[Rfam]
RNA sequence: UGGUAGAUGCACCCUGAUUCAACUUCCCCCAUCUCCUUUGCCGAGGUUGGGGGUUCCUUGU
Numbered sequence: 001u002g003g004u005a006g007a008u009g010c011a012c013c014c015u016g017a018u019u020c021a022a023c024u025u026c027c028c029c030c031a032u033c034u035c036c037u038u039u040g041c042c043g044a045g046g047u048u049g050g051g052g053g054u055u056c057c058u059u060g061u
Stems, first nucleotide, its partner, number of pairs: 002013003026053006033046002036043001